RNA: Small Cajal body specific RNA ncR26
Organism: Arabidopsis thaliana
RNA sequence: UUUGAAAACCUGAUUUUGAUGCGCCGUAUAUGACAGAUUUUUGUGAAUACUGAGGGCUAUUUUUCUUU
Numbered sequence: 001u002u003u004g005a006a007a008a009c010c011u012g013a014u015u016u017u018g019a020u021g022c023g024c025c026g027u028a029u030a031u032g033a034c035a036g037a038u039u040u041u042u043g044u045g046a047a048u049a050c051u052g053a054g055g056g057c058u059a060u061u062u063u064u065c066u067u068u
Base pairs, nucleotide, nucleotide: 012065013064018061019060020059021058023057024056025055026050027049028048029047031046033044034043035042036041